This 145-nucleotide sequence from Moellerella wisconsensis belongs to the Rfam family "Manganese Mn2+ riboswitch aptamer (yybP-ykoY)". This RNA was originally discovered in E. coli during a large scale screen and was named SraF. The family was later found to exist upstream of related families of protein genes in many bacteria, including the the yybP and ykoK genes in B. subtilis. On this family, see Argaman et al., Curr Biol 2001: "Novel small RNA-encoding genes in the intergenic regions of Escherichia coli".
RNA sequence: CCGUCCACGUCAUUGGGGAGUAGCCUGUUCUGAAUAACCGCGUUUAUUCAGAAAGUCCGUAUCAACAUACUCGUUUUAUUUAAAACGUGGUACGGACACCAAAUUCGGUUGGCAAGACCAUAGACACAUAAAUACGCCAUUGGUU
Numbered sequence: 001c002c003g004u005c006c007a008c009g010u011c012a013u014u015g016g017g018g019a020g021u022a023g024c025c026u027g028u029u030c031u032g033a034a035u036a037a038c039c040g041c042g043u044u045u046a047u048u049c050a051g052a053a054a055g056u057c058c059g060u061a062u063c064a065a066c067a068u069a070c071u072c073g074u075u076u077u078a079u080u081u082a083a084a085a086c087g088u089g090g091u092a093c094g095g096a097c098a099c100c101a102a103a104u105u106c107g108g109u110u111g112g113c114a115a116g117a118c119c120a121u122a123g124a125c126a127c128a129u130a131a132a133u134a135c136g137c138c139a140u141u142g143g144u145u
Stems, first nucleotide, its partner, number of pairs: 028053007055097010072087005098144005